[Rfam]
RNA sequence: CAAUGAAGGAAGCAUGAUAAUGUGCAAAUAAAUUGAAUUGGGUCUCCAGGCCUAUCCUCUUUGAUGCCAUUUGGCUUUGAUUUGGGAGCAUGGUUCUGCAGCAAAACA
Numbered sequence: 001c002a003a004u005g006a007a008g009g010a011a012g013c014a015u016g017a018u019a020a021u022g023u024g025c026a027a028a029u030a031a032a033u034u035g036a037a038u039u040g041g042g043u044c045u046c047c048a049g050g051c052c053u054a055u056c057c058u059c060u061u062u063g064a065u066g067c068c069a070u071u072u073g074g075c076u077u078u079g080a081u082u083u084g085g086g087a088g089c090a091u092g093g094u095u096c097u098g099c100a101g102c103a104a105a106a107c108a
Stems, first nucleotide, its partner, number of pairs: 012025004040091001042089002050081001052079001055074002
RNA: Small nucleolar RNA snoR100
Organism: Rhododendron simsii